[Rfam]
The record is a 134-nucleotide RNA from Spermophilus dauricus, which matches "Small nucleolar RNA SNORA9" in Rfam. The family has 36 seed sequences and 1,202 matches in Rfam 15.1. By type it is an H/ACA-box small nucleolar RNA. Gene Ontology terms of the family: nucleolus and RNA processing. Rfam's curators write: ACA9 is a member of the H/ACA class of snoRNA that guide the sites of modification of uridines to pseudouridines. The source organism's lineage runs through Eukaryota, Metazoa, Mammalia, Sciuromorpha and Spermophilus. The base pairs follow the family's consensus structure, which was predicted with PFOLD. Clan: SNORA9 clan.
RNA sequence: UAGCAAGCCUCCAGUGUGCUUGGACCUGCAGUGACCCUGUUGCAUUUCUACCGUGCUUGCCAGAACAGUUUUGAAAUGGUUUGAGGCCUUGUCCUGCCCUGUCCAGAGCAAGGUUAUAGAAACUUCAGACAAUU
Numbered sequence: 001u002a003g004c005a006a007g008c009c010u011c012c013a014g015u016g017u018g019c020u021u022g023g024a025c026c027u028g029c030a031g032u033g034a035c036c037c038u039g040u041u042g043c044a045u046u047u048c049u050a051c052c053g054u055g056c057u058u059g060c061c062a063g064a065a066c067a068g069u070u071u072u073g074a075a076a077u078g079g080u081u082u083g084a085g086g087c088c089u090u091g092u093c094c095u096g097c098c099c100u101g102u103c104c105a106g107a108g109c110a111a112g113g114u115u116a117u118a119g120a121a122a123c124u125u126c127a128g129a130c131a132a133u134u
Stems, first nucleotide, its partner, number of pairs: 003060006017044003022037002026033001072127004087113006094106003